Rfam assigns this 132-nucleotide sequence from Mus spicilegus to the family "Small nucleolar RNA SNORA17". Taxonomically the source falls in Mus (Eukaryota, Craniata, Amniota, Muridae). Clan: SNORA17 clan. The match comes from Rfam's covariance-model search (67 bits). A reference for the family is Ofengand and Bakin (1997), "Mapping to nucleotide resolution of pseudouridine residues in large subunit ribosomal RNAs from representative eukaryotes, prokaryotes, archaebacteria, mitochondria and chloroplasts", J Mol Biol.
RNA sequence: CCUGGCCCUAAAGGUGUUGCAGGUGUGGCUGCUACAUCACAUGUGUGUUAAUAGAAUUGUAAAGAAGAGAAAGACUAUGUCUAUACUCUGUAUUCAGACGAUGAACAUCCAAAUGAUUUGUAGUCUAAGAUU
Numbered sequence: 001c002c003u004g005g006c007c008c009u010a011a012a013g014g015u016g017u018u019g020c021a022g023g024u025g026u027g028g029c030u031g032c033u034a035c036a037u038c039a040c041a042u043g044u045g046u047g048u049u050a051a052u053a054g055a056a057u058u059g060u061a062a063a064g065a066a067g068a069g070a071a072a073g074a075c076u077a078u079g080u081c082u083a084u085a086c087u088c089u090g091u092a093u094u095c096a097g098a099c100g101a102u103g104a105a106c107a108u109c110c111a112a113a114u115g116a117u118u119u120g121u122a123g124u125c126u127a128a129g130a131u132u
Stems, first nucleotide, its partner, number of pairs: 003061002008054003013049003019046003024041005072126007084115002087112001090109001091107001093105003